[Rfam]
RNA sequence: UUCAGAUAUACAAAUACUCCUCAUAUAAUUUUGACGAUAUGGGUCAAAAGUCUCUACAUGGCAACCUUAAUUGCUAUACUAUGGGGAAAAAGCAUUGGUAA
Numbered sequence: 001u002u003c004a005g006a007u008a009u010a011c012a013a014a015u016a017c018u019c020c021u022c023a024u025a026u027a028a029u030u031u032u033g034a035c036g037a038u039a040u041g042g043g044u045c046a047a048a049a050g051u052c053u054c055u056a057c058a059u060g061g062c063a064a065c066c067u068u069a070a071u072u073g074c075u076a077u078a079c080u081a082u083g084g085g086g087a088a089a090a091a092g093c094a095u096u097g098g099u100a101a
Stems, first nucleotide, its partner, number of pairs: 018087008029049007058077007

Shown here is a 101-nucleotide RNA sequence from Gottfriedia endophytica, a member of the family "Purine riboswitch aptamer". Lineage of the source: Bacteria > Bacillati > Bacillota > Caryophanales > Gottfriedia.